mir-2774 microRNA precursor family: a 68-nucleotide RNA sequence from Bombyx mori.
[Rfam]
RNA sequence: AGAAAAUUCGGACCGUCGAUCUGCCGUGCAAAUACUACCCGCUCGGUGGAAGAUCUACCUUUCGUCGU
Dot-bracket structure: ...(.....((...(((..(((((((.((...........)).))))))).)))...)).....)...

The source organism's lineage runs through Eukaryota, Insecta, Eumetabola, Amphiesmenoptera and Bombyx.
It scores 55 bits against the family's covariance model.